[Rfam]
Shown here is a 213-nucleotide sequence from Brackiella oedipodis, a member of the family "permuted transfer-messenger RNA". The family's consensus secondary structure is taken from published work. Bacterial tmRNA, also known as 10Sa RNA or SsrA, is named for its dual tRNA and mRNA-like properties. Taxonomically the source falls in Brackiella oedipodis (Bacteria, Pseudomonadati, Betaproteobacteria, Alcaligenaceae).
RNA sequence: GCUGUUUAUCUGGUUGACUGAAUGUCUUCUGGACGCGGGUUCGACUCCCGCCGCCUCCACCAAUAGCGUAUUAGUGGUGCUAGUAUUUUAUUGCUGGGGGCGUACUUGGUUUCGACAGGAGAAGCUAGGGAAAUCGGCAGCCGGUAGGCGAUGACCGUAAAUCAAGCAAAUCUUAUAAAUGCUAAUGACGAAAGUUAUGCAUUAGCCGCCUAA
Numbered sequence: 001g002c003u004g005u006u007u008a009u010c011u012g013g014u015u016g017a018c019u020g021a022a023u024g025u026c027u028u029c030u031g032g033a034c035g036c037g038g039g040u041u042c043g044a045c046u047c048c049c050g051c052c053g054c055c056u057c058c059a060c061c062a063a064u065a066g067c068g069u070a071u072u073a074g075u076g077g078u079g080c081u082a083g084u085a086u087u088u089u090a091u092u093g094c095u096g097g098g099g100g101c102g103u104a105c106u107u108g109g110u111u112u113c114g115a116c117a118g119g120a121g122a123a124g125c126u127a128g129g130g131a132a133a134u135c136g137g138c139a140g141c142c143g144g145u146a147g148g149c150g151a152u153g154a155c156c157g158u159a160a161a162u163c164a165a166g167c168a169a170a171u172c173u174u175a176u177a178a179a180u181g182c183u184a185a186u187g188a189c190g191a192a193a194g195u196u197a198u199g200c201a202u203u204a205g206c207c208g209c210c211u212a213a
Stems, first nucleotide, its partner, number of pairs: 001141004014131002025122003029118003035051005052102007142157004
Dot-bracket structure: ((((.........((.........(((.(((...(((((.......)))))(((((((.....................................))))))).............))).))).......))......))))((((........))))........................................................